Rfam assigns this 60-nucleotide RNA sequence from Mus spicilegus to the family "U7 small nuclear RNA".
From the family's description: Animal histone pre-mRNAs are spliced by a different mechanism than nuclear pre-mRNAs and self-splicing introns. This processing involves the U7 snRNP, which contains only one RNA species: U7. The 5' end of U7 RNA is thought to base-pair to a conserved spacer element downstream of the cleavage site in histone pre-mRNA. This family contains a number of annotated U7 pseudogenes.
The family's consensus secondary structure was predicted with PFOLD.
[Rfam]
RNA sequence: GAGUGGACACGGCUCUUUCAGAAUUUUUUCUGGCUUUCUGAUUUUGAUUGGAAAACCCAA
Numbered sequence: 001g002a003g004u005g006g007a008c009a010c011g012g013c014u015c016u017u018u019c020a021g022a023a024u025u026u027u028u029u030c031u032g033g034c035u036u037u038c039u040g041a042u043u044u045u046g047a048u049u050g051g052a053a054a055a056c057c058c059a060a
Stems, first nucleotide, its partner, number of pairs: 032057002035054008